RNA sequence: AUCUGUUUUCCAAAGCUACAAUUUUGUAAUUUAAAAAAAUUUUACUGUCCUAGUCACAGAAGAUCACCUUCUUGUUUACUGAUAAAACUACCAUCAUUCAAUUGGUAUUAGAUUCUGACAUGCACAGGUAACAUUC
Numbered sequence: 001a002u003c004u005g006u007u008u009u010c011c012a013a014a015g016c017u018a019c020a021a022u023u024u025u026g027u028a029a030u031u032u033a034a035a036a037a038a039a040u041u042u043u044a045c046u047g048u049c050c051u052a053g054u055c056a057c058a059g060a061a062g063a064u065c066a067c068c069u070u071c072u073u074g075u076u077u078a079c080u081g082a083u084a085a086a087a088c089u090a091c092c093a094u095c096a097u098u099c100a101a102u103u104g105g106u107a108u109u110a111g112a113u114u115c116u117g118a119c120a121u122g123c124a125c126a127g128g129u130a131a132c133a134u135u136c
Base pairs, nucleotide, nucleotide: 002060003059004058005057006056015046017044018043020040022038023037024036025035073133074132075131076130079127080126081125083122084121088111089110090109093106094105095104096103
RNA: Small nucleolar RNA SNORA24